[Rfam]
RNA sequence: GGCAAUAAAUGGGUUACAGAAUAGACUCUGUGGACUUGGGGGCAGUGCCCAACAUCUCCACCAAUUACGUUUGACAAAAGUCUGUACGUAGACUAUAUGGGGAUGAAAUAGGUUCGACACGGUGUAGUAAAAGUUUUCUAGUUGCUUUGGGAAUUUUUCACCAAUGUGAGAGACAGCAAUGUUUCAAGCAAGAACGAGAUAAUAAAUUAAAUGCAAAUACUAAAAAAGUUGCAGGAAAAACAGUAAGAAUGGGCGCAAGCAUGUCACGUGUUGCAUCUUCA
Number, nucleotide and partner (000 for none) at each position: 001g146002g145003c144004a143005a142006u000007a000008a000009a000010u000011g000012g000013g000014u000015u000016a134017c133018a000019g000020a000021a000022u000023a000024g000025a000026c124027u000028c122029u000030g120031u119032g118033g000034a000035c000036u052037u051038g050039g049040g048041g000042g000043c000044a000045g000046u000047g000048c040049c039050c038051a037052a036053c105054a104055u103056c102057u101058c100059c099060a000061c000062c000063a000064a000065u000066u000067a000068c000069g000070u000071u000072u000073g000074a000075c000076a000077a000078a000079a000080g000081u000082c000083u000084g000085u000086a000087c000088g000089u000090a000091g000092a000093c000094u000095a000096u000097a000098u000099g059100g058101g057102g056103a055104u054105g053106a000107a000108a000109u000110a000111g000112g000113u000114u000115c000116g000117a000118c032119a031120c030121g000122g028123u000124g026125u000126a000127g000128u000129a000130a000131a000132a000133g017134u016135u000136u000137u000138c000139u000140a000141g000142u005143u004144g003145c002146u001147u190148u000149g000150g000151g000152a000153a000154u000155u000156u000157u000158u000159c000160a000161c000162c000163a000164a000165u000166g000167u000168g000169a000170g000171a000172g000173a000174c000175a000176g000177c000178a000179a000180u000181g000182u000183u000184u000185c000186a000187a000188g000189c000190a147191a000192g000193a000194a000195c000196g000197a000198g000199a000200u000201a000202a000203u000204a000205a000206a000207u000208u000209a000210a000211a000212u000213g000214c000215a000216a000217a000218u000219a000220c000221u000222a000223a000224a000225a000226a000227a000228g000229u000230u000231g000232c000233a000234g000235g000236a000237a000238a000239a000240a000241c000242a000243g000244u000245a000246a000247g000248a000249a000250u000251g000252g000253g000254c000255g000256c000257a000258a000259g000260c000261a000262u000263g000264u000265c000266a000267c000268g000269u000270g000271u000272u000273g000274c000275a000276u000277c000278u000279u000280c000281a000
A member of the RNA family "permuted transfer-messenger RNA", 281 nucleotides long. Rfam's curators put it in the seed alignment. Pairs were carried over by alignment from the consensus structure, which is taken from published work.